[Rfam]
RNA sequence: CCCCGGACUGCGGGAGAGACUGGUCUCCAGCGCCGAAGGAGCAACCGCCCCGGAAACUCUCAGGCAAAAGGACCGCAGUUGUUUU
Numbered sequence: 001c002c003c004c005g006g007a008c009u010g011c012g013g014g015a016g017a018g019a020c021u022g023g024u025c026u027c028c029a030g031c032g033c034c035g036a037a038g039g040a041g042c043a044a045c046c047g048c049c050c051c052g053g054a055a056a057c058u059c060u061c062a063g064g065c066a067a068a069a070g071g072a073c074c075g076c077a078g079u080u081g082u083u084u085u
Stems, first nucleotide, its partner, number of pairs: 006080008020030004032065003035061002039059003045053002
Record summary
The family of this 85-nucleotide sequence from Devosia geojensis is "Glycine riboswitch aptamer". It scores 69 bits against the family's covariance model. The source organism's lineage runs through Bacteria, Pseudomonadati, Pseudomonadota, Hyphomicrobiales and Devosia. This family represents the bacterial glycine riboswitch. Glycine riboswitches usually consist of two metabolite-binding aptamers domains with similar structures in tandem. The aptamers cooperatively bind glycine to regulate the expression of downstream genes. In Bacillus subtilis, this riboswitch is found upstream of the gcvT operon which controls glycine degradation. The base pairs follow the family's consensus structure.